Annotation:
This 107-nucleotide RNA sequence from Clostridium taeniosporum belongs to the Rfam family "SAM riboswitch aptamer (S box leader)".

RNA sequence: CUCUUAUCGAGAGAGGUGGAGGGAAAGGGCCCUAUGAAACCCGGCAACCUGUUUACACAAGGUGCCAAUUCCUGUAGAUUUAUUAAUCAUAAUCUACAAGAUAAGAA
Numbered sequence: 001c002u003c004u005u006a007u008c009g010a011g012a013g014a015g016g017u018g019g020a021g022g023g024a025a026a027g028g029g030c031c032c033u034a035u036g037a038a039a040c041c042c043g044g045c046a047a048c049c050u051g052u053u054u055a056c057a058c059a060a061g062g063u064g065c066c067a068a069u070u071c072c073u074g075u076a077g078a079u080u081u082a083u084u085a086a087u088c089a090u091a092a093u094c095u096a097c098a099a100g101a102u103a104a105g106a107a
Stems, first nucleotide, its partner, number of pairs: 002106007013042001015041003021032003027073003043066004048062002050059003070099001075096006
The source organism's lineage runs through Bacteria, Bacillota, Clostridia, Clostridiaceae and Clostridium.